[Rfam]
RNA sequence: UCCACCGUGAGGUGGAAUCUGAAGGAAGCCGGCGGCAAAUCUCCGGUCUGAGGAACACGAAUCUCAUAUAAGGCUAACAUUCGUUGGAUGAGUCUGCACUACAAGACAAAGUCCUUGCUACCGAAGGCGAAUGAGAGUAAAUGAGGCAGAUAGAUGGAGAGAAAGACUGCGUU
Numbered sequence: 001u002c003c004a005c006c007g008u009g010a011g012g013u014g015g016a017a018u019c020u021g022a023a024g025g026a027a028g029c030c031g032g033c034g035g036c037a038a039a040u041c042u043c044c045g046g047u048c049u050g051a052g053g054a055a056c057a058c059g060a061a062u063c064u065c066a067u068a069u070a071a072g073g074c075u076a077a078c079a080u081u082c083g084u085u086g087g088a089u090g091a092g093u094c095u096g097c098a099c100u101a102c103a104a105g106a107c108a109a110a111g112u113c114c115u116u117g118c119u120a121c122c123g124a125a126g127g128c129g130a131a132u133g134a135g136a137g138u139a140a141a142u143g144a145g146g147c148a149g150a151u152a153g154a155u156g157g158a159g160a161g162a163a164a165g166a167c168u169g170c171g172u173u
Stems, first nucleotide, its partner, number of pairs: 001016006028173001030171002036165001040160006046151005062146006073138003078133006086114004092107004
The family of this 173-nucleotide RNA from Baia soyae is "Group II catalytic intron D1-D4-3".
The base pairs follow the family's consensus structure.
The source organism's lineage runs through Bacteria, Bacillati, Bacillota, Bacilli and Baia.
It scores 151 bits against the family's covariance model.
Group II introns are found in rRNA, tRNA and mRNA of organelles in fungi, plants and protists, and also in mRNA in bacteria.